Description
This 63-nucleotide sequence from Hespellia stercorisuis belongs to the Rfam family "S4-Clostridia ribosomal protein leader". Rfam classes the family as a cis-regulatory leader. The literature on the family includes a 2020 paper in BMC Microbiol by Eckert and Weinberg, "Discovery of 20 novel ribosomal leader candidates in bacteria and archaea".

RNA sequence: GAAAGGGUAUUCUCGAACCAGAGAGUGCCUGGGAGUUGUAAAAUGCCAGACUCCCCAGUUUGG
Numbered sequence: 001g002a003a004a005g006g007g008u009a010u011u012c013u014c015g016a017a018c019c020a021g022a023g024a025g026u027g028c029c030u031g032g033g034a035g036u037u038g039u040a041a042a043a044u045g046c047c048a049g050a051c052u053c054c055c056c057a058g059u060u061u062g063g
Base pairs, nucleotide, nucleotide: 005030006029007028008027009026010025011024012023031055032054033053034052035051036050037049